[Rfam]
RNA sequence: UCCUUAUCUUUUAAAAGUUUCAUGUUGGUCCCUUAUCUUUAUUUUAGGUUUCAAGUUGGUCUAUUCCGUCAAUUUUUUAACUAUUUCCGUUAAAUUUGGACACGUGUCAUAUGUCCAAGUGUGCCACGUGUCCAAAUUAGUUUGCCACGUGUCCAAAUUUAACGAAAAUAGUUAAAAAAUUGACGGAAGGGACCAACUUGAAACCUAAAAUAAAGAUAAGGGACUAACUUGAAACUUUUAAAAGAUAAGGGA
Dot-bracket structure: .(((((((...............((.(((.(((((((((((((.(((.............................................................................................................................................................))).))))))))))))).))).))...............)))))))..